Shown here is a 134-nucleotide sequence from Phyllostomus discolor, a member of the family "Small nucleolar RNA SNORA22". Gene Ontology terms of the family: nucleolus and RNA processing. Taxonomically the source falls in Phyllostomus (Eukaryota, Opisthokonta, Eumetazoa, Deuterostomia). Rfam describes the family as follows. ACA22 is a member of the H/ACA class of snoRNA that guide the sites of modification of uridines to pseudouridines.
[Rfam]
RNA sequence: UUUAAAAAAGGAUUGGCAGGUGUGCUUUAUAGUUCCCUUGGCUUUGACUCUGUGCUAGAGCAAUGUCUGUCUUUUUUCUCUGCAUUGAAAGGACUAUUUGUCCUUUUAAAUGUAUUCAGAAAGUCAGCACAUUA
Numbered sequence: 001u002u003u004a005a006a007a008a009a010g011g012a013u014u015g016g017c018a019g020g021u022g023u024g025c026u027u028u029a030u031a032g033u034u035c036c037c038u039u040g041g042c043u044u045u046g047a048c049u050c051u052g053u054g055c056u057a058g059a060g061c062a063a064u065g066u067c068u069g070u071c072u073u074u075u076u077u078c079u080c081u082g083c084a085u086u087g088a089a090a091g092g093a094c095u096a097u098u099u100g101u102c103c104u105u106u107u108a109a110a111u112g113u114a115u116u117c118a119g120a121a122a123g124u125c126a127g128c129a130c131a132u133u134a
Stems, first nucleotide, its partner, number of pairs: 005053001007051001010049001013046001017040004022035001024033003057073002060070003079120004083112004087107007